[Rfam]
RNA sequence: AAGACAGGCCGGGCAAUCGCGGUGGAUGCAAAUCCGUCGAGGAAGGUCCGGACUCCACAGGGCAGGGUAGCGGCUAACGGCCGUCCGGCCGUGCCGGCAGGCUUGCCUGCAGGCACGACCGAGGAACAGGGCCACAGAGACGAGUCUGCGGGGCGGGCGCGCCAGUCGCGCACCGGCACGGCCAUCUCCGUGCCGCGCGGUCCGGCAACGGGCGGCGGCAUCGCAGGGUGAAACGCGGCAACCUCUAUCCGGAGCAACACCAAAUAGGCAUGUGUGGGCCCCUGGGCCCGAAGGGCGGCCCGCCCGAGCAUGCGGGUAGGUGGCUACAGCGGUCCAGCAAUGGCCCGCGCAGAGGAAUGAUUGCCCGCCGGGUUCGCCCGGCGUACAGAAUCCGGCCUACAGGCCUGUCUUGCAA
Numbered sequence: 001a002a003g004a005c006a007g008g009c010c011g012g013g014c015a016a017u018c019g020c021g022g023u024g025g026a027u028g029c030a031a032a033u034c035c036g037u038c039g040a041g042g043a044a045g046g047u048c049c050g051g052a053c054u055c056c057a058c059a060g061g062g063c064a065g066g067g068u069a070g071c072g073g074c075u076a077a078c079g080g081c082c083g084u085c086c087g088g089c090c091g092u093g094c095c096g097g098c099a100g101g102c103u104u105g106c107c108u109g110c111a112g113g114c115a116c117g118a119c120c121g122a123g124g125a126a127c128a129g130g131g132c133c134a135c136a137g138a139g140a141c142g143a144g145u146c147u148g149c150g151g152g153g154c155g156g157g158c159g160c161g162c163c164a165g166u167c168g169c170g171c172a173c174c175g176g177c178a179c180g181g182c183c184a185u186c187u188c189c190g191u192g193c194c195g196c197g198c199g200g201u202c203c204g205g206c207a208a209c210g211g212g213c214g215g216c217g218g219c220a221u222c223g224c225a226g227g228g229u230g231a232a233a234c235g236c237g238g239c240a241a242c243c244u245c246u247a248u249c250c251g252g253a254g255c256a257a258c259a260c261c262a263a264a265u266a267g268g269c270a271u272g273u274g275u276g277g278g279c280c281c282c283u284g285g286g287c288c289c290g291a292a293g294g295g296c297g298g299c300c301c302g303c304c305c306g307a308g309c310a311u312g313c314g315g316g317u318a319g320g321u322g323g324c325u326a327c328a329g330c331g332g333u334c335c336a337g338c339a340a341u342g343g344c345c346c347g348c349g350c351a352g353a354g355g356a357a358u359g360a361u362u363g364c365c366c367g368c369c370g371g372g373u374u375c376g377c378c379c380g381g382c383g384u385a386c387a388g389a390a391u392c393c394g395g396c397c398u399a400c401a402g403g404c405c406u407g408u409c410u411u412g413c414a415a
Base pairs, nucleotide, nucleotide: 001411002410003409004408005407006406007405008404009403010402011400012365013364014363015362016361017360018359020039021038022037023036024035025034026033027032044398045397046396048395049394050393051392052391053254054253055252056251060301061300062299063298065250066249067248068247069246070084071083072082073081074080085123086121087120088119124245125244129243130242131239132238133237146165147164152163153162154161155160175194176193177192178191179190180189195219196217197216198215200213201212202211203210204209258322259321260320261319268313269312270311271310272309273308293305294304295303296302329348330347331346332345334343335342336341
The record is a 415-nucleotide RNA sequence from Bordetella petrii, which matches "Bacterial RNase P class A" in Rfam. It is one of the family's seed sequences. NCBI's taxonomy places the organism under Bacteria, Pseudomonadati, Burkholderiales, Alcaligenaceae, Bordetella. It is annotated as a ribozyme. A reference for the family is Frank and Pace (1998), "Ribonuclease P: unity and diversity in a tRNA processing ribozyme", Annu Rev Biochem.